[Rfam]
RNA sequence: CGCAUGGGGAAUGCGAUCUCCCCACUAGGCGACAUGCUGAAGAAUCGCGUCCCGCUCACAUGCAAGGACGCACCAUG
Numbered sequence: 001c002g003c004a005u006g007g008g009g010a011a012u013g014c015g016a017u018c019u020c021c022c023c024a025c026u027a028g029g030c031g032a033c034a035u036g037c038u039g040a041a042g043a044a045u046c047g048c049g050u051c052c053c054g055c056u057c058a059c060a061u062g063c064a065a066g067g068a069c070g071c072a073c074c075a076u077g
Base pairs, nucleotide, nucleotide: 005024006023007022008021009020010019047071048070049069050068051067052066
The family of this 77-nucleotide sequence is "chrB-a RNA". Pairs were carried over by alignment from the consensus structure, which is taken from published work. By type it is a cis-regulatory element.